[Rfam]
Nucleotides: 080
Base pairs, nucleotide, nucleotide: 007074009072010071011070012069013068015066016065017064018063019062020061021059022058023057025055027053028052029051030050031049
Number, partner (000 for none) and nucleotide at each position: 001000u002000a003000a004000a005000a006000g007074g008000c009072u010071c011070c012069a013068u014000a015066c016065u017064u018063c019062u020061u021059u022058a023057c024000a025055u026000u027053c028052c029051a030050u031049a032000a033000u034000a035000g036000g037000c038000u039000g040000a041000a042000a043000a044000u045000u046000c047000a048000a049031u050030a051029u052028g053027g054000g055025a056000a057023g058022u059021a060000a061020a062019a063018g064017a065016a066015g067000c068013a069012u070011g071010g072009a073000a074007c075000u076000a077000a078000a079000u080000a
A member of the RNA family "mir-1 microRNA precursor family" from Diaphorina citri, 80 nucleotides long. Rfam describes the family as follows. This family represents the microRNA (miRNA) mir-1 family. miRNAs are transcribed as ~70nt precursors (modelled here) and subsequently processed by the Dicer enzyme to give a ~22nt product. In this case the mature sequence comes from the 3' arm of the precursor. The extents of the hairpin precursors are not generally known and are estimated based on hairpin prediction. Lineage of the source: Eukaryota > Metazoa > Bilateria > Neoptera > Diaphorina. Rfam links the family to the GO terms miRNA-mediated post-transcriptional gene silencing and RISC complex. A reference for the family is Lee and Ambros (2001), "An extensive class of small RNAs in Caenorhabditis elegans", Science. The match comes from Rfam's covariance-model search (51 bits).